Annotation: Rfam assigns this 142-nucleotide RNA sequence from Esox lucius to the family "U4 spliceosomal RNA". A reference for the family is Vidovic et al. (2000), "Crystal structure of the spliceosomal 15.5kD protein bound to a U4 snRNA fragment", Mol Cell. Pairs were carried over by alignment from the consensus structure, which is taken from published work. Lineage of the source: Eukaryota > Bilateria > Vertebrata > Gnathostomata > Esox.
[Rfam]
RNA sequence: AUCCCUUCGCAGUGGCGAUAUCAUAGCCUAUGAUGGUCUAGCCGAGGCGUGAUUAUUGCUGGUUGAAAACUUAACCCAAGACCCCCGCGGGACGACUUGCAAUACCAGUCGGCCCUGGCAAUUUUGAUAGUCUCGUCAGAGA
Numbered sequence: 001a002u003c004c005c006u007u008c009g010c011a012g013u014g015g016c017g018a019u020a021u022c023a024u025a026g027c028c029u030a031u032g033a034u035g036g037u038c039u040a041g042c043c044g045a046g047g048c049g050u051g052a053u054u055a056u057u058g059c060u061g062g063u064u065g066a067a068a069a070c071u072u073a074a075c076c077c078a079a080g081a082c083c084c085c086c087g088c089g090g091g092a093c094g095a096c097u098u099g100c101a102a103u104a105c106c107a108g109u110c111g112g113c114c115c116u117g118g119c120a121a122u123u124u125u126g127a128u129a130g131u132c133u134c135g136u137c138a139g140a141g142a
Stems, first nucleotide, its partner, number of pairs: 020053005026048003035042001085118003089115003093111005131142004
Dot-bracket structure: ...................(((((.(((......(......)...))))))))...............................(((.(((.(((((.........))))).))))))............((((....))))